Shown here is an 84-nucleotide sequence from Gossypium arboreum, a member of the family "small nucleolar RNA snoR114". Gene Ontology terms of the family: nucleolus and RNA processing.
[Rfam]
RNA sequence: AAGCUGUGAUGAGUAUUGCGCUGUCGUGGUGAUUAGGGUCAUCAUGGUCGUCUGAUUUCAGAUGUGAUCUGCGCUGCUGAGCUU
Numbered sequence: 001a002a003g004c005u006g007u008g009a010u011g012a013g014u015a016u017u018g019c020g021c022u023g024u025c026g027u028g029g030u031g032a033u034u035a036g037g038g039u040c041a042u043c044a045u046g047g048u049c050g051u052c053u054g055a056u057u058u059c060a061g062a063u064g065u066g067a068u069c070u071g072c073g074c075u076g077c078u079g080a081g082c083u084u
Base pairs, nucleotide, nucleotide: 001084002083003082004081
Dot-bracket structure: ((((............................................................................))))
Rfam classes the family as a C/D-box small nucleolar RNA.
It scores 56 bits against the family's covariance model.